[Rfam]
The family of this 115-nucleotide sequence from Panicum virgatum is "MIR2275 microRNA precursor family".

RNA sequence: GCACUGAAUGUGAGAGUUGGAGGAAAUCAAACCGAUCGAUCCAUCCUGUAAUGGGUCGAUGAUAAAACAUGAUCGCCGAUCGGUUUGUUUUCCUCCAAUAUCUCACCUUCAGUUG
Numbered sequence: 001g002c003a004c005u006g007a008a009u010g011u012g013a014g015a016g017u018u019g020g021a022g023g024a025a026a027u028c029a030a031a032c033c034g035a036u037c038g039a040u041c042c043a044u045c046c047u048g049u050a051a052u053g054g055g056u057c058g059a060u061g062a063u064a065a066a067a068c069a070u071g072a073u074c075g076c077c078g079a080u081c082g083g084u085u086u087g088u089u090u091u092c093c094u095c096c097a098a099u100a101u102c103u104c105a106c107c108u109u110c111a112g113u114u115g
Base pairs, nucleotide, nucleotide: 004112005111006110007109008108011105012104013103014102016099017098018097019096020095021094023092024091025090026089028087029086030085032083033082034081035080036079037078038077